[Rfam]
RNA sequence: UUUUCGGCGACGAAAGGGUCUGAAGGAAGCUGAUGACGGUUAUUGGAAGGGAACGAAAGUGAACUAAUGUUGGCAUGUGUAGUGGAUAACCCUCCAUGAAGUGGGAACGUCCUAAAAUUAGCUUAACUACAUGUGUUCUGAUGGUCGUUUUAAUAACAGGCGGAGUAAC
Numbered sequence: 001u002u003u004u005c006g007g008c009g010a011c012g013a014a015a016g017g018g019u020c021u022g023a024a025g026g027a028a029g030c031u032g033a034u035g036a037c038g039g040u041u042a043u044u045g046g047a048a049g050g051g052a053a054c055g056a057a058a059g060u061g062a063a064c065u066a067a068u069g070u071u072g073g074c075a076u077g078u079g080u081a082g083u084g085g086a087u088a089a090c091c092c093u094c095c096a097u098g099a100a101g102u103g104g105g106a107a108c109g110u111c112c113u114a115a116a117a118u119u120a121g122c123u124u125a126a127c128u129a130c131a132u133g134u135g136u137u138c139u140g141a142u143g144g145u146c147g148u149u150u151u152a153a154u155a156a157c158a159g160g161c162g163g164a165g166u167a168a169c
Stems, first nucleotide, its partner, number of pairs: 001016006029169001031167002037160001041155006048149002051146002064144003068140001073136003077132007084112004090105003
The family of this 169-nucleotide sequence from Paramaledivibacter caminithermalis is "Group II catalytic intron D1-D4-3". A search with the family's covariance model found it, with a score of 53 bits.